[Rfam]
A member of the RNA family "mir-282 microRNA precursor family" from Ceratitis capitata, 95 nucleotides long. The match comes from Rfam's covariance-model search (80 bits). A reference for the family is Li et al. (2009), "Direct sequencing and expression analysis of a large number of miRNAs in Aedes aegypti and a multi-species survey of novel mosquito miRNAs", BMC Genomics. Its family is annotated with miRNA-mediated post-transcriptional gene silencing and RISC complex in the Gene Ontology. Taxonomically the source falls in Ceratitis (Eukaryota, Altocrustacea, Insecta, Acalyptratae).
RNA sequence: UCUUGGACUGAAUCUAGCCUCUACUAGGCUUUGUCUGUGUGAGUCAAAUGUAUAUGUCAGACAUAGCCUAAAAGAGGUUAGGUGAAACAGGAAAU
Dot-bracket structure: ...........(((((((((......((((.(((((......................))))).))))......)))))))))............